[Rfam]
RNA sequence: AUACCCCGAAUGCCGGACGUAGAGGGCGGGGGACCCAACUACGGCGGGCACCUGCCCGCCUUGGGGUGAAGCCGGCACCUACCGGCCGGGCACCCGCACCGACGACUCGUUGCUCGUGGUGCGGAGAGCUGAUGACACGGCCGACCACCGGCCGGCGGCUCACGCGCCCGAACCCGACAGCUGACCCCGCAGGCGUUCGUCAGAAAGGACUU
Number, nucleotide and partner (000 for none) at each position: 001a000002u000003a000004c000005c000006c000007c000008g000009a000010a000011u195012g194013c193014c192015g000016g000017a000018c025019g000020u000021a000022g000023a000024g000025g018026g190027c189028g188029g187030g186031g185032g000033a000034c000035c000036c063037a062038a000039c000040u000041a000042c000043g000044g000045c000046g000047g000048g000049c000050a000051c000052c000053u000054g000055c000056c000057c000058g000059c000060c000061u000062u037063g036064g175065g174066g173067u000068g000069a000070a000071g000072c085073c084074g083075g082076c000077a000078c000079c000080u000081a000082c075083c074084g073085g072086c000087c000088g169089g168090g167091c166092a000093c000094c000095c000096g000097c000098a000099c000100c000101g000102a000103c000104g000105a000106c000107u000108c000109g000110u000111u000112g000113c000114u000115c000116g000117u000118g000119g000120u000121g000122c000123g000124g000125a000126g000127a000128g000129c000130u000131g000132a000133u000134g000135a000136c000137a000138c000139g000140g000141c000142c000143g000144a000145c000146c000147a000148c000149c000150g000151g000152c000153c000154g000155g000156c000157g000158g000159c000160u000161c000162a000163c000164g000165c000166g091167c090168c089169c088170g000171a000172a000173c066174c065175c064176g000177a000178c000179a000180g000181c000182u000183g000184a000185c031186c030187c029188c028189g027190c026191a000192g014193g013194c012195g011196u000197u000198c000199g000200u000201c000202a000203g000204a000205a000206a000207g000208g000209a000210c000211u000212u000